The family of this 68-nucleotide sequence from Pseudohoeflea suaedae is "int-alpA RNA". About the family: Acidobacteria (1 example), Planctomycetes (1 example), Proteobacteria. It is annotated as a small RNA. The family's consensus secondary structure is taken from published work.
RNA sequence: UGUUCGGCUAGGGUAGCUCCCGAAAAGCGGUCAUCCAUCCGCCUGCCGAACGCUACAUUUGGAUAGUG
Numbered sequence: 001u002g003u004u005c006g007g008c009u010a011g012g013g014u015a016g017c018u019c020c021c022g023a024a025a026a027g028c029g030g031u032c033a034u035c036c037a038u039c040c041g042c043c044u045g046c047c048g049a050a051c052g053c054u055a056c057a058u059u060u061g062g063a064u065a066g067u068g
Stems, first nucleotide, its partner, number of pairs: 001052008011021003027042004034068001036066001